[Rfam]
RNA: Mammalian CPEB3 ribozyme
Organism: Crocodylus porosus
RNA sequence: AUUGUAAGUUUAAGGCCAUAGCAGAAGCAGUCAUGGUGCAGCCAUGUCAAAUUCCAAUGAAUCUGUGAAUUCUGCU
Numbered sequence: 001a002u003u004g005u006a007a008g009u010u011u012a013a014g015g016c017c018a019u020a021g022c023a024g025a026a027g028c029a030g031u032c033a034u035g036g037u038g039c040a041g042c043c044a045u046g047u048c049a050a051a052u053u054c055c056a057a058u059g060a061a062u063c064u065g066u067g068a069a070u071u072c073u074g075c076u
Stems, first nucleotide, its partner, number of pairs: 014043003020076007027039003048065002051062004